[Rfam]
Source information: A member of the RNA family "MIR812 microRNA precursor family" from Oryza meridionalis, 204 nucleotides long. NCBI's taxonomy places the organism under Eukaryota, Embryophyta, Spermatophyta, Mesangiospermae, Oryza. Pairs were carried over by alignment from the consensus structure, which was predicted with RNAalifold. Rfam 15.1 lists 57,451 matches to the family in 24 species.
Nucleotides: 204
Base pairs, nucleotide, nucleotide: 027178028177030175033173034172035171036170038168039167040166041165042164044162045161046160047159048158049157050156051155
Number, partner (000 for none) and nucleotide at each position: 001000a002000a003000u004000a005000a006000g007000u008000g009000c010000a011000g012000c013000u014000a015000u016000a017000u018000g019000u020000a021000u022000u023000c024000g025000u026000g027178u028177c029000c030175a031000a032000c033173g034172u035171u036170u037000a038168a039167c040166c041165g042164u043000c044162c045161g046160u047159c048158u049157u050156a051155u052000u053000u054000g055000a056000a057000a058000a059000u060000u061000u062000u063000u064000a065000a066000u067000g068000a069000u070000u071000a072000g073000u074000a075000u076000u077000u078000u079000u080000a081000u082000u083000g084000u085000u086000a087000u088000u089000a090000g091000a092000u093000g094000a095000u096000a097000a098000a099000a100000c101000a102000u103000g104000a105000a106000u107000a108000u109000u110000a111000c112000u113000u114000u115000a116000u117000g118000c119000g120000u121000g122000a123000c124000u125000a126000u127000u128000u129000u130000u131000u132000u133000a134000a135000u136000c137000u138000u139000u140000u141000c142000a143000u144000a145000a146000a147000a148000u149000u150000u151000u152000c153000a154000a155051a156050u157049a158048a159047g160046a161045c162044g163000a164042a165041c166040g167039g168038u169000c170036a171035a172034a173033c174000a175030u176000a177028g178027a179000u180000a181000c182000g183000g184000a185000u186000a187000c188000c189000c190000a191000u192000g193000g194000c195000u196000g197000c198000a199000c200000u201000u202000a203000u204000u